Rfam assigns this 123-nucleotide RNA sequence from Methylobacterium haplocladii to the family "TPP riboswitch aptamer (THI element)".
RNA sequence: GAUUCUUCCAGGGAGAUCCCCGACAAGGGGCUGAGACACCGCUAUCGCCAUCCUCGGCAGCGCGGAAAUCCUUCGAACCUGAUCCGGCUCAUACCGGCGUAGGGAUUGGACCGCGGGCGUCUC
Numbered sequence: 001g002a003u004u005c006u007u008c009c010a011g012g013g014a015g016a017u018c019c020c021c022g023a024c025a026a027g028g029g030g031c032u033g034a035g036a037c038a039c040c041g042c043u044a045u046c047g048c049c050a051u052c053c054u055c056g057g058c059a060g061c062g063c064g065g066a067a068a069u070c071c072u073u074c075g076a077a078c079c080u081g082a083u084c085c086g087g088c089u090c091a092u093a094c095c096g097g098c099g100u101a102g103g104g105a106u107u108g109g110a111c112c113g114c115g116g117g118c119g120u121c122u123c
Base pairs, nucleotide, nucleotide: 007110008109009108010107011072012071013070014069018030019029020028021027039065040064041063042062078103079102080101081100084097085096086095087094
The family's consensus secondary structure is taken from published work. From the family's description: Vitamin B(1) in its active form thiamin pyrophosphate (TPP) is an essential coenzyme that is synthesised by coupling of pyrimidine and thiazole moieties in bacteria.